[Rfam]
RNA sequence: GUCAUCAAUCGCAUAGCGACUCGUAUAAUUUUGGGAAUAUGGCCCAUAAGUCUCUACCAGAUGACCGUAAAUCGUCUGACUACGAGUGAAAGAGCGUCUAGG
Dot-bracket structure: ..................(((((((...((.((((.......)))).))........(((((((.......)))))))..)))))))...............
Numbered sequence: 001g002u003c004a005u006c007a008a009u010c011g012c013a014u015a016g017c018g019a020c021u022c023g024u025a026u027a028a029u030u031u032u033g034g035g036a037a038u039a040u041g042g043c044c045c046a047u048a049a050g051u052c053u054c055u056a057c058c059a060g061a062u063g064a065c066c067g068u069a070a071a072u073c074g075u076c077u078g079a080c081u082a083c084g085a086g087u088g089a090a091a092g093a094g095c096g097u098c099u100a101g102g
Stems, first nucleotide, its partner, number of pairs: 019087007029049002032046004058078007
This 102-nucleotide sequence from Brevibacillus sp. SYP-B805 belongs to the Rfam family "Purine riboswitch aptamer". The base pairs follow the family's consensus structure, which is taken from published work. The source organism's lineage runs through Bacteria, Bacillati, Bacilli, Caryophanales and Brevibacillus. Rfam 15.1 lists 4,097 matches to the family in 1,411 species. The match comes from Rfam's covariance-model search (83 bits).